[Rfam]
RNA sequence: UUGACGGUGAACUCCCAGUUGCCUGCCUCGCCGCCGAGCGCCUCGUCACCGAAGUAGUCGCCGCCUGCCGCCGUGCCGAGCACCGUCUGGUCGCCGUACUGCCCGGUGCCGAUCUUGUUGACCUUGCCGUGCGCCAGCAGGAAGACCUGGUCCAUCGGAGCGCCCCGCUGCACGAUGACCUCGCCGGCGGCGAACUCCUGCUGGGUGAACCGGUUCGCCAGCGCGACCAGCACCUCGUCGUCGUCGAAACCUCGCAGCGCGGGCAGCUCGCACAGUUCCUGCGGGAUGACCUUCACCUCGGUGCCCGUGGUGGUGAAGCUGACCCGGUUGUCGCCGAGGGUGUAGCUCAGGCGGCGGUUCACCCGGUAGGCGCCACCGGAGGCCUGCACCCACGGCAGCGUGCGCAGCAGCCACCGCGACGAGAUGCCCUGCAUCUGCGGCACGGACUUGGUCGUCGUCGCCAGGUUGCGAGCGGCAGCGGUGUCCAGACUGGACUU
Numbered sequence: 001u002u003g004a005c006g007g008u009g010a011a012c013u014c015c016c017a018g019u020u021g022c023c024u025g026c027c028u029c030g031c032c033g034c035c036g037a038g039c040g041c042c043u044c045g046u047c048a049c050c051g052a053a054g055u056a057g058u059c060g061c062c063g064c065c066u067g068c069c070g071c072c073g074u075g076c077c078g079a080g081c082a083c084c085g086u087c088u089g090g091u092c093g094c095c096g097u098a099c100u101g102c103c104c105g106g107u108g109c110c111g112a113u114c115u116u117g118u119u120g121a122c123c124u125u126g127c128c129g130u131g132c133g134c135c136a137g138c139a140g141g142a143a144g145a146c147c148u149g150g151u152c153c154a155u156c157g158g159a160g161c162g163c164c165c166c167g168c169u170g171c172a173c174g175a176u177g178a179c180c181u182c183g184c185c186g187g188c189g190g191c192g193a194a195c196u197c198c199u200g201c202u203g204g205g206u207g208a209a210c211c212g213g214u215u216c217g218c219c220a221g222c223g224c225g226a227c228c229a230g231c232a233c234c235u236c237g238u239c240g241u242c243g244u245c246g247a248a249a250c251c252u253c254g255c256a257g258c259g260c261g262g263g264c265a266g267c268u269c270g271c272a273c274a275g276u277u278c279c280u281g282c283g284g285g286a287u288g289a290c291c292u293u294c295a296c297c298u299c300g301g302u303g304c305c306c307g308u309g310g311u312g313g314u315g316a317a318g319c320u321g322a323c324c325c326g327g328u329u330g331u332c333g334c335c336g337a338g339g340g341u342g343u344a345g346c347u348c349a350g351g352c353g354g355c356g357g358u359u360c361a362c363c364c365g366g367u368a369g370g371c372g373c374c375a376c377c378g379g380a381g382g383c384c385u386g387c388a389c390c391c392a393c394g395g396c397a398g399c400g401u402g403c404g405c406a407g408c409a410g411c412c413a414c415c416g417c418g419a420c421g422a423g424a425u426g427c428c429c430u431g432c433a434u435c436u437g438c439g440g441c442a443c444g445g446a447c448u449u450g451g452u453c454g455u456c457g458u459c460g461c462c463a464g465g466u467u468g469c470g471a472g473c474g475g476c477a478g479c480g481g482u483g484u485c486c487a488g489a490c491u492g493g494a495c496u497u
Base pairs, nucleotide, nucleotide: 006390007389008388009387011385014382015381018328019327021325023321025319026318028316029315035313037311039309040308041307045305047303048302049301050300051299052298054233055232058229060227062225063224064223065111067109068108075103079100080099082097083096085094086093117222118221119220120219122217127212129210130209134204135203136202137201139199140198141197143196144195150191156187158185160184161183163177166174167173235295237293240290241289242288243287244286245285251281254278256277257276258275259271260270261269329342330341331340332339352378353377354376356374357373360372362370363369391431392430394428395427396426397425399423401421403418404417405416407415437476438475440473443470444469446467447465448464449463450462451461452460487496488495
A member of the RNA family "Saccharopolyspora sRNA 350" from Amycolatopsis suaedae, 497 nucleotides long.
The family has 2 seed sequences and 1,170 matches in Rfam 15.1.
The match comes from Rfam's covariance-model search (243 bits).
Rfam links the family to the GO term regulation of secondary metabolite biosynthetic process.
By type it is an antisense RNA.
The source organism's lineage runs through Bacteria, Actinomycetota, Actinomycetes, Pseudonocardiales and Amycolatopsis.
The base pairs follow the family's consensus structure, which was predicted with RNAfold.